[Rfam]
RNA sequence: AUGAGAAAUCAUGGCACCAGGGUCUAGCUACAUAGAACCCCAAUAUUCGGGAUUUUAUGUUAUCUGAAGAUGACCACUCGGACAGAUAACAGGGCUUUUAAGCCCUUUUUUU
Number, nucleotide and partner (000 for none) at each position: 001a000002u000003g000004a000005g000006a000007a000008a000009u000010c000011a000012u000013g000014g000015c000016a000017c000018c000019a000020g000021g000022g000023u000024c000025u000026a000027g000028c000029u000030a000031c000032a000033u000034a056035g055036a054037a053038c000039c051040c050041c049042a000043a000044u000045a000046u000047u000048c000049g041050g040051g039052a000053u037054u036055u035056u034057a000058u000059g000060u000061u000062a000063u000064c000065u000066g000067a000068a000069g000070a000071u000072g000073a000074c000075c000076a000077c000078u000079c000080g000081g000082a000083c000084a000085g000086a000087u000088a000089a000090c000091a000092g105093g104094g103095c102096u000097u000098u000099u000100a000101a000102g095103c094104c093105c092106u000107u000108u000109u000110u000111u000112u000
RNA: Gammaprotebacteria rimP leader